[Rfam]
RNA sequence: GGGCAACACGGACGCACAGAUCCUCGGGCACCAGCAACAUCGGUCGCCCGUCGGCGCGGGGGGCAGUAGGUCCUUCUCGCCGACGGCUCGAGGGGAGCGAGUGGCGAGACCGGCCGUGUACGUG
Numbered sequence: 001g002g003g004c005a006a007c008a009c010g011g012a013c014g015c016a017c018a019g020a021u022c023c024u025c026g027g028g029c030a031c032c033a034g035c036a037a038c039a040u041c042g043g044u045c046g047c048c049c050g051u052c053g054g055c056g057c058g059g060g061g062g063g064c065a066g067u068a069g070g071u072c073c074u075u076c077u078c079g080c081c082g083a084c085g086g087c088u089c090g091a092g093g094g095g096a097g098c099g100a101g102u103g104g105c106g107a108g109a110c111c112g113g114c115c116g117u118g119u120a121c122g123u124g
Base pairs, nucleotide, nucleotide: 003123004122006119007118008117009116010115011114013099014098015097022093023092024091025090026089027088028087029086042111043110044107045106046105047104048103
The family of this 124-nucleotide RNA sequence is "c-di-GMP-II-GAG riboswitch aptamer". Pairs were carried over by alignment from the consensus structure, which is taken from published work. It is one of the family's seed sequences.